[Rfam]
RNA sequence: GUUUUGGGGUACGUGUCAGAGGUGCAUUUACAUCGAACUAUUCCAGUUGAGGUAUUUGUAAAUGCACUAUCUGGUACGACAUUCCAGAAU
Dot-bracket structure: ....((((...(((((((((.(.(((((((((........................))))))))).)..)))))))))....))))....
Numbered sequence: 001g002u003u004u005u006g007g008g009g010u011a012c013g014u015g016u017c018a019g020a021g022g023u024g025c026a027u028u029u030a031c032a033u034c035g036a037a038c039u040a041u042u043c044c045a046g047u048u049g050a051g052g053u054a055u056u057u058g059u060a061a062a063u064g065c066a067c068u069a070u071c072u073g074g075u076a077c078g079a080c081a082u083u084c085c086a087g088a089a090u
Stems, first nucleotide, its partner, number of pairs: 005086004012078009022067001024065009

This 90-nucleotide RNA from Anopheles gambiae belongs to the Rfam family "mir-277 microRNA precursor family". The organism belongs to gambiae species complex, within Eukaryota. The family has 25 seed sequences and 170 matches in Rfam 15.1. Rfam links the family to the GO terms RISC complex and miRNA-mediated post-transcriptional gene silencing. The base pairs follow the family's consensus structure, which was predicted with RNAalifold. It is one of the family's seed sequences.